[Rfam]
The record is a 76-nucleotide RNA sequence from Adineta ricciae, which matches "mir-87 microRNA precursor family" in Rfam.

RNA sequence: UAGUACACGCCUGAAAUUUUUCUCAAACCUUUGCUCAUAUGUGAAUAGGUGAGCAAAGUUUCAGGUGUAUUGAUCC
Numbered sequence: 001u002a003g004u005a006c007a008c009g010c011c012u013g014a015a016a017u018u019u020u021u022c023u024c025a026a027a028c029c030u031u032u033g034c035u036c037a038u039a040u041g042u043g044a045a046u047a048g049g050u051g052a053g054c055a056a057a058g059u060u061u062c063a064g065g066u067g068u069a070u071u072g073a074u075c076c
Base pairs, nucleotide, nucleotide: 002074004072005071008067009066010065011064012063013062014061016059017058018057019056020055022053023052024051025050028049029048030047

Pairs were carried over by alignment from the consensus structure, which was predicted with RNAalifold. Rfam links the family to the GO terms miRNA-mediated post-transcriptional gene silencing and RISC complex.